[Rfam]
RNA sequence: GCUUCAUGCAGAAGAGCCGAGGGACAAGCCCGAUGACGCUCUGCCAACCAGCCCACCUGACCUCUCGCAAAUAAGCUGAGAAAGAGCGCGGCAGUGGUGGCAAUGCUUGGAGUGGGUAUUUUACUCACGACCAUGAAGG
Numbered sequence: 001g002c003u004u005c006a007u008g009c010a011g012a013a014g015a016g017c018c019g020a021g022g023g024a025c026a027a028g029c030c031c032g033a034u035g036a037c038g039c040u041c042u043g044c045c046a047a048c049c050a051g052c053c054c055a056c057c058u059g060a061c062c063u064c065u066c067g068c069a070a071a072u073a074a075g076c077u078g079a080g081a082a083a084g085a086g087c088g089c090g091g092c093a094g095u096g097g098u099g100g101c102a103a104u105g106c107u108u109g110g111a112g113u114g115g116g117u118a119u120u121u122u123a124c125u126c127a128c129g130a131c132c133a134u135g136a137a138g139g
Base pairs, nucleotide, nucleotide: 002138003137004136005135006134007133008132013042014041015040016039017038021031022030023029025109026108027107028106043101044100045099046098048097049096051092052091053090105131112128113127114126115125116124117123
SAM riboswitch aptamer (S box leader): a 139-nucleotide sequence from Bradymonas sediminis.
The SAM riboswitch is found upstream of a number of genes which code for proteins involved in methionine or cysteine biosynthesis in Gram-positive bacteria.
Taxonomically the source falls in Bradymonas (Bacteria, delta/epsilon subdivisions, Bradymonadales, Bradymonadaceae).